[Rfam]
RNA sequence: GAGGUAAAUUGUCUUAUCGCUCCGGAACGGACUAACGAACCGGGGAGGAAAGUCCGGACAGCACAGAGUACCAUACUUCCUAACGGGAAGGCAGGUGGCGGAAGACGCUCUGCGUUGACGGCCAUUUGACAGAAAGUGCCACAGAAAACGUACCGCCGGAGCCGCGUUUAGUUUCUAAACGUACUCCGGUAAGGGUGAAAAGGUGGGGUAAGAGCCCACCGCCCGGCUGGUGACAGACGGGGCAGGGUAAACCUUAUGGGCUGAAAGAUCAAAUAGGCAUCAGAAUGGGGGCGACUCGUUCCCGUAAUUUCGAAUCCGUUCGGAAUGAUGCUGAUGCGGGUAGAUCGAUAGAGUUUCGAAGUGAUUCGGAAUCGAGAUAAAUGAUAAGAAUCUGAAAGGGUUGUUUCGACAAUCGGAUCGGAGACAGAAUCCGGCUUAUAGAUUUACUUCGCGA
Numbered sequence: 001g002a003g004g005u006a007a008a009u010u011g012u013c014u015u016a017u018c019g020c021u022c023c024g025g026a027a028c029g030g031a032c033u034a035a036c037g038a039a040c041c042g043g044g045g046a047g048g049a050a051a052g053u054c055c056g057g058a059c060a061g062c063a064c065a066g067a068g069u070a071c072c073a074u075a076c077u078u079c080c081u082a083a084c085g086g087g088a089a090g091g092c093a094g095g096u097g098g099c100g101g102a103a104g105a106c107g108c109u110c111u112g113c114g115u116u117g118a119c120g121g122c123c124a125u126u127u128g129a130c131a132g133a134a135a136g137u138g139c140c141a142c143a144g145a146a147a148a149c150g151u152a153c154c155g156c157c158g159g160a161g162c163c164g165c166g167u168u169u170a171g172u173u174u175c176u177a178a179a180c181g182u183a184c185u186c187c188g189g190u191a192a193g194g195g196u197g198a199a200a201a202g203g204u205g206g207g208g209u210a211a212g213a214g215c216c217c218a219c220c221g222c223c224c225g226g227c228u229g230g231u232g233a234c235a236g237a238c239g240g241g242g243c244a245g246g247g248u249a250a251a252c253c254u255u256a257u258g259g260g261c262u263g264a265a266a267g268a269u270c271a272a273a274u275a276g277g278c279a280u281c282a283g284a285a286u287g288g289g290g291g292c293g294a295c296u297c298g299u300u301c302c303c304g305u306a307a308u309u310u311c312g313a314a315u316c317c318g319u320u321c322g323g324a325a326u327g328a329u330g331c332u333g334a335u336g337c338g339g340g341u342a343g344a345u346c347g348a349u350a351g352a353g354u355u356u357c358g359a360a361g362u363g364a365u366u367c368g369g370a371a372u373c374g375a376g377a378u379a380a381a382u383g384a385u386a387a388g389a390a391u392c393u394g395a396a397a398g399g400g401u402u403g404u405u406u407c408g409a410c411a412a413u414c415g416g417a418u419c420g421g422a423g424a425c426a427g428a429a430u431c432c433g434g435c436u437u438a439u440a441g442a443u444u445u446a447c448u449u450c451g452c453g454a
Stems, first nucleotide, its partner, number of pairs: 001450010011439001012389007020045006028037001050437003054434005059263004071259005076090005091130001092128008131254002136252002138248003153194002155190007202220006221243001222241004227236003267346004277337006317327004353372008
Bacterial RNase P class A: a 454-nucleotide sequence from Larkinella knui. By type it is a ribozyme. A search with the family's covariance model found it, with a score of 256 bits.